Notes
The family of this 87-nucleotide sequence from Triticum aestivum is "MIR1120/MIR1122 microRNA precursor family". The match comes from Rfam's covariance-model search (93 bits). The organism belongs to Triticum, within Eukaryota. The family's consensus secondary structure was predicted with RNAalifold. On this family, see Yao et al., Genome Biol 2007: "Cloning and characterization of microRNAs from wheat (Triticum aestivum L.)".

RNA sequence: CUACUCCCUCCGUUUCAUAAUAUAAGAACGUUUUUGCCACUACACUAGUGACAAAAACGUUCUUAUAUUAUGGGACGGGGGGAGUAC
Number, nucleotide and partner (000 for none) at each position: 001c000002u000003a085004c084005u083006c000007c081008c080009u079010c078011c077012g000013u075014u074015u073016c072017a071018u000019a069020a068021u067022a066023u065024a064025a063026g062027a061028a060029c059030g058031u057032u056033u055034u054035u053036g052037c000038c050039a049040c048041u047042a000043c000044a000045c000046u000047a041048g040049u039050g038051a000052c036053a035054a034055a033056a032057a031058c030059g029060u028061u027062c026063u025064u024065a023066u022067a021068u020069u019070a000071u017072g016073g015074g014075a013076c000077g011078g010079g009080g008081g007082g000083a005084g004085u003086a000087c000